[Rfam]
RNA sequence: GCGAGACACGUGACCUGCCGACCGAGCGCGACCGAUAAACUGAUGACGGACCACGCCGGGCGCAGCCUCCGGCCGGUCCGCCAAUGAACAGCCAGCAGCCGCUGCAACCACAGGGAG
Numbered sequence: 001g002c003g004a005g006a007c008a009c010g011u012g013a014c015c016u017g018c019c020g021a022c023c024g025a026g027c028g029c030g031a032c033c034g035a036u037a038a039a040c041u042g043a044u045g046a047c048g049g050a051c052c053a054c055g056c057c058g059g060g061c062g063c064a065g066c067c068u069c070c071g072g073c074c075g076g077u078c079c080g081c082c083a084a085u086g087a088a089c090a091g092c093c094a095g096c097a098g099c100c101g102c103u104g105c106a107a108c109c110a111c112a113g114g115g116a117g
Base pairs, nucleotide, nucleotide: 048079049078050077051076052075056072057071058070059069060068093104094103095102096101

This 117-nucleotide sequence from Streptomyces uncialis belongs to the Rfam family "Streptomyces-metK RNA". The family's RNA type in Rfam is small RNA.